[Rfam]
RNA sequence: UGCAGAGUAAAUUCAUGAGCGUAAAGUGCCUUCCGGAUGGAGAGUUGCCGGAGGACGAAAAGAGAAAUCUUGCGGUUCGUGGAUUGCUUCUCGCUGCA
Dot-bracket structure: (((((....(((((((((((((...((.(((.((((...[.[[[...)))))))))...((((....))))))).)))))))))).]]].]..)))))